[Rfam]
RNA sequence: AGGUAAUGUCUACUGCACCUAUAUCACUGUAGGCACUCGGUCAUGCUGUGGGCGGUGCGCCGCCUUAGACGUAUAUCGUCGAGGGUGUGAUGUGAGGAGGGGUUAGAUGCCCU
Numbered sequence: 001a002g003g004u005a006a007u008g009u010c011u012a013c014u015g016c017a018c019c020u021a022u023a024u025c026a027c028u029g030u031a032g033g034c035a036c037u038c039g040g041u042c043a044u045g046c047u048g049u050g051g052g053c054g055g056u057g058c059g060c061c062g063c064c065u066u067a068g069a070c071g072u073a074u075a076u077c078g079u080c081g082a083g084g085g086u087g088u089g090a091u092g093u094g095a096g097g098a099g100g101g102g103u104u105a106g107a108u109g110c111c112c113u
Base pairs, nucleotide, nucleotide: 001020002019003018004017007035008034009033010032011031012030013029036096037095038094039093040091041090042089043088044087045086046085047084050065051064052063053062054061055060068080069079070078071077099113100112101111102110103109

Background:
epsC RNA: a 113-nucleotide sequence from Paenibacillus naphthalenovorans. Lineage of the source: Bacteria > Bacillati > Bacilli > Caryophanales > Paenibacillus. A search with the family's covariance model found it, with a score of 107 bits.